Shown here is a 40-nucleotide RNA sequence, a member of the family "Ocean-VII RNA". The base pairs follow the family's consensus structure, which is taken from published work. It is one of the family's seed sequences.
[Rfam]
RNA sequence: UUAGUCUCAGGGAUCAGAAGGGGUGAACAAGACCCUAGAC
Number, nucleotide and partner (000 for none) at each position: 001u000002u000003a000004g000005u000006c000007u000008c000009a000010g000011g000012g000013a000014u000015c000016a000017g000018a000019a000020g036021g035022g034023g033024u032025g000026a000027a000028c000029a000030a000031g000032a024033c023034c022035c021036u020037a000038g000039a000040c000